[Rfam]
RNA sequence: GACCUAAACCAGCAAUGGCAUGGUCUAAAAUCCAUUUGACACAACAAGCUCGUCGCAGAGCACUGUGUCAAAUGGUCAUAGUCCGAAAGGAUUGUGGGUGGCUUCGGCUAUC
Numbered sequence: 001g002a003c004c005u006a007a008a009c010c011a012g013c014a015a016u017g018g019c020a021u022g023g024u025c026u027a028a029a030a031u032c033c034a035u036u037u038g039a040c041a042c043a044a045c046a047a048g049c050u051c052g053u054c055g056c057a058g059a060g061c062a063c064u065g066u067g068u069c070a071a072a073u074g075g076u077c078a079u080a081g082u083c084c085g086a087a088a089g090g091a092u093u094g095u096g097g098g099u100g101g102c103u104u105c106g107g108c109u110a111u112c
Stems, first nucleotide, its partner, number of pairs: 001025004009018003032075011048061004077096008097112006
Rfam assigns this 112-nucleotide RNA sequence to the family "LOOT RNA". The family's RNA type in Rfam is small RNA. The base pairs follow the family's consensus structure, which is taken from published work.